[Rfam]
RNA sequence: UAAACCCGUCCCAUCGCACUCCACUUUAUGCGUGGGAGGGGCAAAAGAAAGGAGCAAUACCGCCUUGUUCAGCGGUGCGGCAGUGUGGAGACCUGCCGUAAAGUCCGAGGGAUAUAGCUGCUCUCGGGCGAAACGGGGAUGCGGAGGCUGAACCGUUAUGGGCAAAAAGAUGGCA
Numbered sequence: 001u002a003a004a005c006c007c008g009u010c011c012c013a014u015c016g017c018a019c020u021c022c023a024c025u026u027u028a029u030g031c032g033u034g035g036g037a038g039g040g041g042c043a044a045a046a047g048a049a050a051g052g053a054g055c056a057a058u059a060c061c062g063c064c065u066u067g068u069u070c071a072g073c074g075g076u077g078c079g080g081c082a083g084u085g086u087g088g089a090g091a092c093c094u095g096c097c098g099u100a101a102a103g104u105c106c107g108a109g110g111g112a113u114a115u116a117g118c119u120g121c122u123c124u125c126g127g128g129c130g131a132a133a134c135g136g137g138g139a140u141g142c143g144g145a146g147g148c149u150g151a152a153c154c155g156u157u158a159u160g161g162g163c164a165a166a167a168a169g170a171u172g173g174c175a
Base pairs, nucleotide, nucleotide: 006040007039009037010036011035012034013033015032016031017030018029060075061074062073063072065165066164067163068162069161070160071159076100077099078098079097080096081095082094083093085092086091103129104128105127106126107125108124109123110122111121132157133156134155135154136153141148142147